[Rfam]
RNA sequence: AAUUACAAAGGUCGGAAAGGCUCCCGACACACUCGUAAGAGUACCUGAGAUGCUGGAUACGCCGCCCAGCUUGUAAUU
Numbered sequence: 001a002a003u004u005a006c007a008a009a010g011g012u013c014g015g016a017a018a019g020g021c022u023c024c025c026g027a028c029a030c031a032c033u034c035g036u037a038a039g040a041g042u043a044c045c046u047g048a049g050a051u052g053c054u055g056g057a058u059a060c061g062c063c064g065c066c067c068a069g070c071u072u073g074u075a076a077u078u
Stems, first nucleotide, its partner, number of pairs: 001078008011028005019063003030047001031042004052070005
Dot-bracket structure: ((((((((..(((((...[[[..))))).(((((....))))....)....(((((....]]]..)))))))))))))
About this RNA:
The family of this 78-nucleotide RNA is "skipping-rope RNA". It is annotated as a small RNA. The sequence is in the family's curated seed alignment.